[Rfam]
RNA: Small nucleolar RNA SNORA57
RNA sequence: CCUCCAUUUCUUUGCACACCUGUAGUUGCUCAGUACUCACGUGUGAUUGUUCGGAGGUAGAACAAAGCCAGUGCUAUGUCUUCGGUACCAGUGUGUGUUAUCGUCUGCUGGUCCUAUCCUCAAUCGCUGGCACACUU
Dot-bracket structure: (((((.........(((((..(.(((........))))..))))).......)))))...........(((((..............((((((............)))))).............)))))........